This 85-nucleotide RNA from Crocodylus porosus belongs to the Rfam family "Mammalian CPEB3 ribozyme". The base pairs follow the family's consensus structure, which is taken from published work. Rfam links the family to the GO term RNA nuclease activity.

Nucleotides: 085
Stems, first nucleotide, its partner, number of pairs: 015044003021085007028040003048074006
Number, partner (000 for none) and nucleotide at each position: 001000a002000g003000u004000u005000g006000c007000a008000a009000c010000u011000u012000c013000a014000g015044g016043g017042c018000c019000a020000u021085a022084g023083c024082a025081g026080a027079a028040g029039c030038a031000c032000u033000c034000a035000u036000g037000g038030u039029g040028c041000a042017g043016c044015c045000u046000g047000u048074c049073a050072g051071u052070u053069u054000c055000c056000a057000a058000c059000a060000a061000a062000u063000c064000u065000g066000c067000u068000a069053a070052a071051a072050c073049u074048g075000c076000a077000a078000a079027u080026u081025c082024u083023g084022c085021u